[Rfam]
RNA sequence: GCGCAGGCUUUGUCGAGUGGUUACUUCGUAAGUACAGAAUUCGAGUUUCGGCAACUGCGUCAAAGACCACUGACACAAUCCUGCGUUUUU
Numbered sequence: 001g002c003g004c005a006g007g008c009u010u011u012g013u014c015g016a017g018u019g020g021u022u023a024c025u026u027c028g029u030a031a032g033u034a035c036a037g038a039a040u041u042c043g044a045g046u047u048u049c050g051g052c053a054a055c056u057g058c059g060u061c062a063a064a065g066a067c068c069a070c071u072g073a074c075a076c077a078a079u080c081c082u083g084c085g086u087u088u089u090u
Stems, first nucleotide, its partner, number of pairs: 002085006012074004017070004025064002028061001
Dot-bracket structure: .((((((....((((.((((....((.(................................).))..)))))))).....)))))).....
Description: The family of this 90-nucleotide sequence from Stegodyphus mimosarum is "Vault RNA". Rfam classes the family as a non-coding RNA gene. It scores 43 bits against the family's covariance model. The source organism's lineage runs through Eukaryota, Protostomia, Arachnida, Entelegynae and Stegodyphus. The base pairs follow the family's consensus structure, which is taken from published work.